[Rfam]
RNA sequence: CAGGUCGAGAGGCGCUGCAACGGACCGGUGGUCCGCCACGCUCGGCCGGUACCACCAUCCAAGGGCGCCUCCGUGCA
Numbered sequence: 001c002a003g004g005u006c007g008a009g010a011g012g013c014g015c016u017g018c019a020a021c022g023g024a025c026c027g028g029u030g031g032u033c034c035g036c037c038a039c040g041c042u043c044g045g046c047c048g049g050u051a052c053c054a055c056c057a058u059c060c061a062a063g064g065g066c067g068c069c070u071c072c073g074u075g076c077a
Stems, first nucleotide, its partner, number of pairs: 003047006021035006
A member of the RNA family "SAH (S-adenosyl-L-homocysteine) riboswitch aptamer" from Amycolatopsis sp. M39, 77 nucleotides long.